[Rfam]
RNA sequence: ACUGCCCCUAGAGGCAUUGUAGGUGUGGCUGCCAUGUUGCACCUGCGUCAUUAGGUGGCAGAGAGCAGAGAGGCUUGCCUACGCCCAGCAUCCUGGCUGUGGGCGCCUGGAUGGUUGACGGCCUGGCACU
Numbered sequence: 001a002c003u004g005c006c007c008c009u010a011g012a013g014g015c016a017u018u019g020u021a022g023g024u025g026u027g028g029c030u031g032c033c034a035u036g037u038u039g040c041a042c043c044u045g046c047g048u049c050a051u052u053a054g055g056u057g058g059c060a061g062a063g064a065g066c067a068g069a070g071a072g073g074c075u076u077g078c079c080u081a082c083g084c085c086c087a088g089c090a091u092c093c094u095g096g097c098u099g100u101g102g103g104c105g106c107c108u109g110g111a112u113g114g115u116u117g118a119c120g121g122c123c124u125g126g127c128a129c130u
Base pairs, nucleotide, nucleotide: 002061003060004059005058006057007055008054009053010052011051013049014048015047019046020045021044022043024041025040026039027038028037029036068127071124072123073122074121075120076118082113083112085110086109087108088107089105091103092102093101